RNA sequence: CCAGGAAAAUGACCUAUGAAUUGACAGGCUGCUUUCUAAAUUUGCCUGUCAUUUCUAUAGGCCAAUAUUCUGC
Numbered sequence: 001c002c003a004g005g006a007a008a009a010u011g012a013c014c015u016a017u018g019a020a021u022u023g024a025c026a027g028g029c030u031g032c033u034u035u036c037u038a039a040a041u042u043u044g045c046c047u048g049u050c051a052u053u054u055c056u057a058u059a060g061g062c063c064a065a066u067a068u069u070c071u072g073c
Base pairs, nucleotide, nucleotide: 002072003071004070005069006068008066010064011063013061014060015059016058018055019054020053022051023050024049025048026047027046028045029044031042
RNA: mir-192/215 microRNA precursor family
Organism: Phoenicopterus ruber